[Rfam]
RNA sequence: UGAUGAUGAUCGGGAGAGACUGCCUGCGGCCAGAUGGAUAGCCGACCCGGCAGCACCGAAGGAGCAAGCCGUUAUCCUUGCCGGAUAACGAAUAAUCUCUCAGGUAAACGUACCGGCAUUUGACG
Numbered sequence: 001u002g003a004u005g006a007u008g009a010u011c012g013g014g015a016g017a018g019a020c021u022g023c024c025u026g027c028g029g030c031c032a033g034a035u036g037g038a039u040a041g042c043c044g045a046c047c048c049g050g051c052a053g054c055a056c057c058g059a060a061g062g063a064g065c066a067a068g069c070c071g072u073u074a075u076c077c078u079u080g081c082c083g084g085a086u087a088a089c090g091a092a093u094a095a096u097c098u099c100u101c102a103g104g105u106a107a108a109c110g111u112a113c114c115g116g117c118a119u120u121u122g123a124c125g
Stems, first nucleotide, its partner, number of pairs: 006120001010116004020053004055105003058101002062099003
The record is a 125-nucleotide sequence from Paenibacillus sp. Leaf72, which matches "Glycine riboswitch aptamer" in Rfam. Its family is annotated with glycine biosynthetic process in the Gene Ontology. The base pairs follow the family's consensus structure. NCBI's taxonomy places the organism under Bacteria, Bacillota, Caryophanales, Paenibacillaceae, Paenibacillus.